Rfam assigns this 82-nucleotide sequence from Drosophila gunungcola to the family "Selenocysteine transfer RNA".
[Rfam]
RNA sequence: GCUUGAGCUUUGGUGGUCCAAGGUGCGGACUUCAAAUCCGUAGUCGAUUAGCGUCGAAGUGGUUCGAUUCCACCUGGGGGGC
Numbered sequence: 001g002c003u004u005g006a007g008c009u010u011u012g013g014u015g016g017u018c019c020a021a022g023g024u025g026c027g028g029a030c031u032u033c034a035a036a037u038c039c040g041u042a043g044u045c046g047a048u049u050a051g052c053g054u055c056g057a058a059g060u061g062g063u064u065c066g067a068u069u070c071c072a073c074c075u076g077g078g079g080g081g082c
Base pairs, nucleotide, nucleotide: 002077003076005074008023009022010021011020012019013018024042025041026040027039028038029037044057045056046055047054048053059073060072061071062070
Its family is annotated with triplet codon-amino acid adaptor activity in the Gene Ontology. The match comes from Rfam's covariance-model search (59 bits). The organism belongs to elegans subgroup (in: flies), within Eukaryota.